[Rfam]
RNA sequence: UCAACGUAGACAUCCAGCGGAAUUAGCCUCCACUGGCUCUGUCUGUAUGGCACAUGGGAGCCUAACAUCUUUGAUUUGAGGUAUAUUCCCAGCCAUGACGUUGAACAUUAAAACUGCCCCAGAUAUUCUAAAUAUCUGCUUGGUGCAGUACUUUGCAUAUUCCUUGUGUCUCCUAGAGUCACUAUGUGACAAUGACUAGGAGAAUAAACCAUGCAAUGAACAGUU
Numbered sequence: 001u002c003a004a005c006g007u008a009g010a011c012a013u014c015c016a017g018c019g020g021a022a023u024u025a026g027c028c029u030c031c032a033c034u035g036g037c038u039c040u041g042u043c044u045g046u047a048u049g050g051c052a053c054a055u056g057g058g059a060g061c062c063u064a065a066c067a068u069c070u071u072u073g074a075u076u077u078g079a080g081g082u083a084u085a086u087u088c089c090c091a092g093c094c095a096u097g098a099c100g101u102u103g104a105a106c107a108u109u110a111a112a113a114c115u116g117c118c119c120c121a122g123a124u125a126u127u128c129u130a131a132a133u134a135u136c137u138g139c140u141u142g143g144u145g146c147a148g149u150a151c152u153u154u155g156c157a158u159a160u161u162c163c164u165u166g167u168g169u170c171u172c173c174u175a176g177a178g179u180c181a182c183u184a185u186g187u188g189a190c191a192a193u194g195a196c197u198a199g200g201a202g203a204a205u206a207a208a209c210c211a212u213g214c215a216a217u218g219a220a221c222a223g224u225u
Stems, first nucleotide, its partner, number of pairs: 001104007008044005014036003019028002047096004056090004060084001062081002064077002153216006169203006178190004
Small nucleolar RNA SNORA73 family: a 225-nucleotide RNA from Paramuricea clavata.
The literature on the family includes a 1996 paper in RNA by Enright et al., "5'ETS rRNA processing facilitated by four small RNAs: U14, E3, U17, and U3".
By type it is an H/ACA-box small nucleolar RNA.
U17 (SNORA73A and SNORA73B) also known as E1 belongs to the H/ACA class of small nucleolar RNAs (snoRNAs).
A search with the family's covariance model found it, with a score of 126 bits.
Rfam 15.1 lists 2,326 matches to the family in 660 species.
Gene Ontology terms of the family: nucleolus and RNA processing.
NCBI's taxonomy places the organism under Eukaryota, Octocorallia, Malacalcyonacea, Plexauridae, Paramuricea.
Pairs were carried over by alignment from the consensus structure, which is taken from published work.